[Rfam]
RNA sequence: UUACAUGAUAGAGGCGCAUUGCACAUCAGUACCGCGGAUCUCCGGUCAAUGGAUCGGCGGGAAAGGGUGUCGUGCCGAGGGUCUGGCAUUCGUGUCCACGGGUGUCAUUCACCGGGACGCAGGAAAAUAUUCUGCGUACUGUCGUCCACGAGGACGGAGAGCUGUCGUGUCU
Numbered sequence: 001u002u003a004c005a006u007g008a009u010a011g012a013g014g015c016g017c018a019u020u021g022c023a024c025a026u027c028a029g030u031a032c033c034g035c036g037g038a039u040c041u042c043c044g045g046u047c048a049a050u051g052g053a054u055c056g057g058c059g060g061g062a063a064a065g066g067g068u069g070u071c072g073u074g075c076c077g078a079g080g081g082u083c084u085g086g087c088a089u090u091c092g093u094g095u096c097c098a099c100g101g102g103u104g105u106c107a108u109u110c111a112c113c114g115g116g117a118c119g120c121a122g123g124a125a126a127a128u129a130u131u132c133u134g135c136g137u138a139c140u141g142u143c144g145u146c147c148a149c150g151a152g153g154a155c156g157g158a159g160a161g162c163u164g165u166c167g168u169g170u171c172u
Base pairs, nucleotide, nucleotide: 006167007166008165009164010163011162016075017074018073019072021070022069023068024067032060033059034058035057037055038054039053079113080112081110084107085106086105087104088103089102090101091100092099114140115139117137118136119135120134121133122132123131124130142157143156144155145154146153147152
Rfam assigns this 172-nucleotide RNA sequence from Aedoeadaptatus ivorii to the family "Lysine riboswitch aptamer". The source organism's lineage runs through Bacteria, Bacillota, Tissierellia, Peptoniphilaceae and Aedoeadaptatus.